[Rfam]
RNA: Fluoride riboswitch aptamer (crcB RNA motif)
RNA sequence: AUCAAAUGAGGCGAUGGAGUUCGCCAUAACCGCUGUUUGCAGCUAAUGACUCCUACCAGAGG
Numbered sequence: 001a002u003c004a005a006a007u008g009a010g011g012c013g014a015u016g017g018a019g020u021u022c023g024c025c026a027u028a029a030c031c032g033c034u035g036u037u038u039g040c041a042g043c044u045a046a047u048g049a050c051u052c053c054u055a056c057c058a059g060a061g062g
Stems, first nucleotide, its partner, number of pairs: 010025004016053006032043004